[Rfam]
RNA sequence: ACAGUCUGAAAAUCACUUGGGAUCUCCUGUGGCCCCUGGUGUGAUAACUGUGCCGACAGCAGAGGGAGCAUUAAACUCAUUGCCCACGGUAAAGUGUAGGGAGUGAAACCCAUGUUCCUAUAAUC
Numbered sequence: 001a002c003a004g005u006c007u008g009a010a011a012a013u014c015a016c017u018u019g020g021g022a023u024c025u026c027c028u029g030u031g032g033c034c035c036c037u038g039g040u041g042u043g044a045u046a047a048c049u050g051u052g053c054c055g056a057c058a059g060c061a062g063a064g065g066g067a068g069c070a071u072u073a074a075a076c077u078c079a080u081u082g083c084c085c086a087c088g089g090u091a092a093a094g095u096g097u098a099g100g101g102a103g104u105g106a107a108a109c110c111c112a113u114g115u116u117c118c119u120a121u122a123a124u125c
Stems, first nucleotide, its partner, number of pairs: 006050001008048001010045001014041003021034001023032002065118001067116005077106005085096003
Small nucleolar RNA ACA64: a 125-nucleotide RNA sequence from Bucco capensis. For this family Rfam cites "A computational screen for mammalian pseudouridylation guide H/ACA RNAs" (Schattner et al., RNA, 2006). The family's RNA type in Rfam is H/ACA-box small nucleolar RNA. Its family is annotated with nucleolus and RNA processing in the Gene Ontology. The family's consensus secondary structure was predicted with WAR.